Shown here is an 88-nucleotide sequence, a member of the family "GA-cis RNA". The family's RNA type in Rfam is small RNA. Pairs were carried over by alignment from the consensus structure, which is taken from published work.
RNA sequence: GCGCGGAGGGCGCUUAUGAAUCGAAGAUUCAUAAUUAGGAUGCGCCCGACAACCUACCACAGAGCGAAGCGAUGUGGUGAUACCAGAA
Numbered sequence: 001g002c003g004c005g006g007a008g009g010g011c012g013c014u015u016a017u018g019a020a021u022c023g024a025a026g027a028u029u030c031a032u033a034a035u036u037a038g039g040a041u042g043c044g045c046c047c048g049a050c051a052a053c054c055u056a057c058c059a060c061a062g063a064g065c066g067a068a069g070c071g072a073u074g075u076g077g078u079g080a081u082a083c084c085a086g087a088a
Stems, first nucleotide, its partner, number of pairs: 008047006016032006056078003060074002064070002